[Rfam]
RNA sequence: GCAACCUGAAGCUGGCGCACGGCAACACCGUGGUGUUCCGCUCGCUGCUGGGCAUCUCGUGGAUGUGGUUCUUCGGCGCGGUGUUCCUGUCGCAGUUCCCCAGCUUCGCCAAGGACGUGCUG
Numbered sequence: 001g002c003a004a005c006c007u008g009a010a011g012c013u014g015g016c017g018c019a020c021g022g023c024a025a026c027a028c029c030g031u032g033g034u035g036u037u038c039c040g041c042u043c044g045c046u047g048c049u050g051g052g053c054a055u056c057u058c059g060u061g062g063a064u065g066u067g068g069u070u071c072u073u074c075g076g077c078g079c080g081g082u083g084u085u086c087c088u089g090u091c092g093c094a095g096u097u098c099c100c101c102a103g104c105u106u107c108g109c110c111a112a113g114g115a116c117g118u119g120c121u122g
Base pairs, nucleotide, nucleotide: 010049011048012047014045017042021038022037025034026033051121052120053119054118055117057115058114060112062110063105067099068098071095072094074092075091076090077089078088080087081086
Shown here is a 122-nucleotide RNA sequence from Acidovorax sp. JS42, a member of the family "Burkholderia RNA 11". Co-purified with Hfq, expression confirmed by Northern blot. Predicted target marZ. Overlaps coding sequence. Rfam's curators put it in the seed alignment. Rfam links the family to the GO term protein binding. The organism belongs to Acidovorax, within Bacteria.